[Rfam]
RNA sequence: AGAUUAAAGUUCAAGGCCAUAGCUGAAGCACUCACAGUGCAGCCCUAACAGAUUCCAAUGAAUCUGAAUUCUGCU
Numbered sequence: 001a002g003a004u005u006a007a008a009g010u011u012c013a014a015g016g017c018c019a020u021a022g023c024u025g026a027a028g029c030a031c032u033c034a035c036a037g038u039g040c041a042g043c044c045c046u047a048a049c050a051g052a053u054u055c056c057a058a059u060g061a062a063u064c065u066g067a068a069u070u071c072u073g074c075u
Base pairs, nucleotide, nucleotide: 015044016043017042021075022074023073025071026070027069028040029039030038049066050065051064052063053062054061055060